[Rfam]
Shown here is a 566-nucleotide part of an RNA from Actinobacillus indolicus, a member of the family "Bacterial small subunit ribosomal RNA". Taxonomically the source falls in Actinobacillus (Bacteria, Pseudomonadati, Pseudomonadota, Pasteurellaceae). The literature on the family includes a 2001 paper in Science by Yusupov et al., "Crystal structure of the ribosome at 5.5 A resolution".
RNA sequence: GAAUUGAAGAGUUUGAUCAUGGCUCAGAUUGAACGCUGGCGGCAGGCUUAACACAUGCAAGUCGAACGGUAGCAGGAGAAAGCUUGCUUUCUUGCUGACGAGUGGCGGACGGGUGAGUAAUGCUUGGGAAUCUGGCUUAUGGAGGGGGAUAACUACGGGAAACUGUAGCUAAUACCGCGUAAUGUCUAAGGACUAAAGGGUGGGACUUUCGGGCCACCUGCCAUAAGAUGAGCCCAAGUGGGAUUAGGUAGUUGGUGGGGUAAAGGCCUACCAAGCCGACGAUCUCUAGCUGGUCUGAGAGGAUGACCAGCCACACUGGAACUGAGACACGGUCCAGACUCCUACGGGAGGCAGCAGUGGGGAAUAUUGCACAAUGGGGGGAACCCUGAUGCAGCCAUGCCGCGUGAAUGAAGAAGGCCUUCGGGUUGUAAAGUUCUUUCGGUGAUGAGGAAGGUGUUUGUUUUAAUAGAACAAGCAAUUGACGUUAGUCACAGAAGAAGCACCGGCUAACUCCGUGCCAGCAGCCGCGGUAAUACGGAGGGUGCGAGCGUUAAUCGGAAUGACUG
Numbered sequence: 001g002a003a004u005u006g007a008a009g010a011g012u013u014u015g016a017u018c019a020u021g022g023c024u025c026a027g028a029u030u031g032a033a034c035g036c037u038g039g040c041g042g043c044a045g046g047c048u049u050a051a052c053a054c055a056u057g058c059a060a061g062u063c064g065a066a067c068g069g070u071a072g073c074a075g076g077a078g079a080a081a082g083c084u085u086g087c088u089u090u091c092u093u094g095c096u097g098a099c100g101a102g103u104g105g106c107g108g109a110c111g112g113g114u115g116a117g118u119a120a121u122g123c124u125u126g127g128g129a130a131u132c133u134g135g136c137u138u139a140u141g142g143a144g145g146g147g148g149a150u151a152a153c154u155a156c157g158g159g160a161a162a163c164u165g166u167a168g169c170u171a172a173u174a175c176c177g178c179g180u181a182a183u184g185u186c187u188a189a190g191g192a193c194u195a196a197a198g199g200g201u202g203g204g205a206c207u208u209u210c211g212g213g214c215c216a217c218c219u220g221c222c223a224u225a226a227g228a229u230g231a232g233c234c235c236a237a238g239u240g241g242g243a244u245u246a247g248g249u250a251g252u253u254g255g256u257g258g259g260g261u262a263a264a265g266g267c268c269u270a271c272c273a274a275g276c277c278g279a280c281g282a283u284c285u286c287u288a289g290c291u292g293g294u295c296u297g298a299g300a301g302g303a304u305g306a307c308c309a310g311c312c313a314c315a316c317u318g319g320a321a322c323u324g325a326g327a328c329a330c331g332g333u334c335c336a337g338a339c340u341c342c343u344a345c346g347g348g349a350g351g352c353a354g355c356a357g358u359g360g361g362g363a364a365u366a367u368u369g370c371a372c373a374a375u376g377g378g379g380g381g382a383a384c385c386c387u388g389a390u391g392c393a394g395c396c397a398u399g400c401c402g403c404g405u406g407a408a409u410g411a412a413g414a415a416g417g418c419c420u421u422c423g424g425g426u427u428g429u430a431a432a433g434u435u436c437u438u439u440c441g442g443u444g445a446u447g448a449g450g451a452a453g454g455u456g457u458u459u460g461u462u463u464u465a466a467u468a469g470a471a472c473a474a475g476c477a478a479u480u481g482a483c484g485u486u487a488g489u490c491a492c493a494g495a496a497g498a499a500g501c502a503c504c505g506g507c508u509a510a511c512u513c514c515g516u517g518c519c520a521g522c523a524g525c526c527g528c529g530g531u532a533a534u535a536c537g538g539a540g541g542g543u544g545c546g547a548g549c550g551u552u553a554a555u556c557g558g559a560a561u562g563a564c565u566g
Base pairs, nucleotide, nucleotide: 009025010024011023012022013021027556028555029554030553032552033551034550035549036548037547039403040402041401042400043399044398045396046395047361052359053358054357056356057355058354061106062105063104066103067102069099070098076093077092078091079090080089081088082087113314114313115312122239123238124237125236126235127234128233131231132230136227137226138225139224140223141222142221144178146176147175153168154167155166156165157164158163184193185192186191198219199218200217201216202215203214240286241285242284247277248276249275252274253273254272255271256270257269258268259267289311290310291309292308293304294303295302296301316337317336318335319334320333339350340349341348342347367393369392370391371390375388376387377386378385379384406436407435408434409433416427417426418425419424440497442492443491444490445489446488450483458475500545501544502543503542504541511540512539513538514537515536521528522527
Overview: It scores 1540 bits against the family's covariance model.